Eukaryotic large subunit ribosomal RNA: a 245-nucleotide part of an RNA from Microbotryum intermedium. Rfam links the family to the GO terms ribosome and structural constituent of ribosome. It scores 3356 bits against the family's covariance model.
RNA sequence: CGCUUGAAGUCAGACUUGCAUUUUGGAGUUCAGCCGCAAGGUGUACUCUUCAAUUCGCAGGCCAGCAUCAGUUUUCGGGGGUGGAAAAUCGUGGUUUGAAGGUAGCAGUCUCGGCUGUGUUAUAGCUUUCCGCUGGAUUCACUUUUGGGGACUGAGGAACGCAGUACGCUUUUUGCAAGACUCUCGAGUCUUUCGUACUUAGGAUGCUGGUGGAAUGGCUUUAAACGACCCGUCUUGAAACACGG
Numbered sequence: 001c002g003c004u005u006g007a008a009g010u011c012a013g014a015c016u017u018g019c020a021u022u023u024u025g026g027a028g029u030u031c032a033g034c035c036g037c038a039a040g041g042u043g044u045a046c047u048c049u050u051c052a053a054u055u056c057g058c059a060g061g062c063c064a065g066c067a068u069c070a071g072u073u074u075u076c077g078g079g080g081g082u083g084g085a086a087a088a089u090c091g092u093g094g095u096u097u098g099a100a101g102g103u104a105g106c107a108g109u110c111u112c113g114g115c116u117g118u119g120u121u122a123u124a125g126c127u128u129u130c131c132g133c134u135g136g137a138u139u140c141a142c143u144u145u146u147g148g149g150g151a152c153u154g155a156g157g158a159a160c161g162c163a164g165u166a167c168g169c170u171u172u173u174u175g176c177a178a179g180a181c182u183c184u185c186g187a188g189u190c191u192u193u194c195g196u197a198c199u200u201a202g203g204a205u206g207c208u209g210g211u212g213g214a215a216u217g218g219c220u221u222u223a224a225a226c227g228a229c230c231c232g233u234c235u236u237g238a239a240a241c242a243c244g245g
Base pairs, nucleotide, nucleotide: 001227002226004224005223006222007221008220009219010218011217012216017059018058019057023053024052063209064208065207066206067205068204069203230245231244232243233242